[Rfam]
RNA sequence: GUGGAAAUUUCCAGGGGCAGGUAUAUAUAUGCAAGCAAGAAGCAAGCAUAUAUAGCUUGCUUCUUGCUUGCAUAUAUAUACCUGCCCC
Numbered sequence: 001g002u003g004g005a006a007a008u009u010u011c012c013a014g015g016g017g018c019a020g021g022u023a024u025a026u027a028u029a030u031g032c033a034a035g036c037a038a039g040a041a042g043c044a045a046g047c048a049u050a051u052a053u054a055g056c057u058u059g060c061u062u063c064u065u066g067c068u069u070g071c072a073u074a075u076a077u078a079u080a081c082c083u084g085c086c087c088c
Stems, first nucleotide, its partner, number of pairs: 002013004014088005020082003024078002028074015044058004
This 88-nucleotide sequence from Platysternon megacephalum belongs to the Rfam family "No-Known-Vector Flavivirus 3' UTR cis-acting replication element (CRE)". The match comes from Rfam's covariance-model search (52 bits). The source organism's lineage runs through Eukaryota, Euteleostomi, Sauropsida, Cryptodira and Platysternon. Flavi_NKV_CRE is a Flavivirus family were the vector is not known. Flavivirus 3' UTR cis-acting replication element (CRE) plays a crucial role in the virus replication and is thought to be needed for the formation of a 'replication complex', it is composed of a small hairpin (sHP) and a larger structural element (3'SL).